[Rfam]
RNA sequence: CUGUGCUUUGUGACGCUCUGAUCUGAAACCCACGGCGGGUCAGAGCCGAUGUUUGUCAG
Number, nucleotide and partner (000 for none) at each position: 001c000002u000003g000004u058005g057006c000007u000008u000009u000010g000011u000012g000013a000014c000015g046016c045017u044018c043019u042020g041021a040022u039023c038024u037025g000026a000027a000028a000029c000030c035031c000032a000033c000034g000035g030036c000037g024038g023039g022040u021041c020042a019043g018044a017045g016046c015047c000048g000049a000050u000051g000052u000053u000054u000055g000056u000057c005058a004059g000
RNA: Selenocysteine insertion sequence 1